This 92-nucleotide RNA from Zygotorulaspora mrakii belongs to the Rfam family "Small nucleolar RNA SNORD24". The family has 14 seed sequences and 2,843 matches in Rfam 15.1. The match comes from Rfam's covariance-model search (54 bits). Rfam classes the family as a C/D-box small nucleolar RNA. Pairs were carried over by alignment from the consensus structure, which was predicted with PFOLD.

[Rfam]
Nucleotides: 092
Base pairs, nucleotide, nucleotide: 001092002091003090004089
Number, partner (000 for none) and nucleotide at each position: 001092u002091u003090c004089a005000a006000a007000u008000g009000a010000u011000g012000c013000a014000a015000u016000u017000a018000a019000u020000a021000u022000a023000u024000u025000u026000g027000c028000u029000a030000c031000u032000u033000c034000a035000g036000a037000c038000a039000a040000g041000u042000u043000u044000u045000a046000a047000a048000g049000c050000a051000c052000u053000u054000g055000a056000a057000u058000g059000a060000g061000a062000c063000a064000u065000a066000c067000u068000a069000a070000u071000u072000a073000u074000c075000a076000c077000c078000a079000a080000g081000a082000u083000c084000u085000c086000u087000g088000a089004u090003g091002g092001a
Lineage of the source: Eukaryota > Opisthokonta > Fungi > Saccharomycetes > Zygotorulaspora. Gene Ontology terms of the family: RNA processing and nucleolus.